[Rfam]
RNA sequence: GGCGUAAAGGGUGCGUAGGCGGUUUUUUAAGUCUGCAUUGUAAGUUCAGUGCUUAACGCUGAAAUUGGUGCGGAAACUGGAAGACUUGAGUACUGUAGGGGAAAGCGGAAUGCCCUGUGUAGAGGUGAAAUUCGUAGAUAUAGGGUGGAACAUCAAAAGCGAAGGCAGCUUUCUGGGCAGUAACUGACGCUGAGGCACGAAAGCGUGGGGAGCAAACAGGAUUAGAUACCCUGGUAGUCCACGCCGUAAACGAUGGAUGCUAGAUGUUGGCGGGAAUCUUCCUGUCAGUGUCGGAGCUAACGCAAUAAGCAUCCCGCCUGGGGAGUACGGUCGCAAGGCUGAAACUCAAAGGAAU
Numbered sequence: 001g002g003c004g005u006a007a008a009g010g011g012u013g014c015g016u017a018g019g020c021g022g023u024u025u026u027u028u029a030a031g032u033c034u035g036c037a038u039u040g041u042a043a044g045u046u047c048a049g050u051g052c053u054u055a056a057c058g059c060u061g062a063a064a065u066u067g068g069u070g071c072g073g074a075a076a077c078u079g080g081a082a083g084a085c086u087u088g089a090g091u092a093c094u095g096u097a098g099g100g101g102a103a104a105g106c107g108g109a110a111u112g113c114c115c116u117g118u119g120u121a122g123a124g125g126u127g128a129a130a131u132u133c134g135u136a137g138a139u140a141u142a143g144g145g146u147g148g149a150a151c152a153u154c155a156a157a158a159g160c161g162a163a164g165g166c167a168g169c170u171u172u173c174u175g176g177g178c179a180g181u182a183a184c185u186g187a188c189g190c191u192g193a194g195g196c197a198c199g200a201a202a203g204c205g206u207g208g209g210g211a212g213c214a215a216a217c218a219g220g221a222u223u224a225g226a227u228a229c230c231c232u233g234g235u236a237g238u239c240c241a242c243g244c245c246g247u248a249a250a251c252g253a254u255g256g257a258u259g260c261u262a263g264a265u266g267u268u269g270g271c272g273g274g275a276a277u278c279u280u281c282c283u284g285u286c287a288g289u290g291u292c293g294g295a296g297c298u299a300a301c302g303c304a305a306u307a308a309g310c311a312u313c314c315c316g317c318c319u320g321g322g323g324a325g326u327a328c329g330g331u332c333g334c335a336a337g338g339c340u341g342a343a344a345c346u347c348a349a350a351g352g353a354a355u
Stems, first nucleotide, its partner, number of pairs: 001318003009315001011198004016192001018191003022085007030078002032074009045063007089185003092181005100174007107151001111147008122133003159166002203244006212238002217233004255314006263292012296303002320347003329340004
The record is a 355-nucleotide part of an RNA from Desulfurispirillum indicum, which matches "Bacterial small subunit ribosomal RNA" in Rfam. The family has 99 seed sequences and 42,628 matches in Rfam 15.1. The literature on the family includes a 2002 paper in BMC Bioinformatics by Cannone et al., "The comparative RNA web (CRW) site: an online database of comparative sequence and structure information for ribosomal, intron, and other RNAs". The base pairs follow the family's consensus structure, which is taken from published work. It is one of the family's seed sequences. Lineage of the source: Bacteria > Pseudomonadati > Chrysiogenia > Desulfurispirillum > Desulfurispirillum indicum.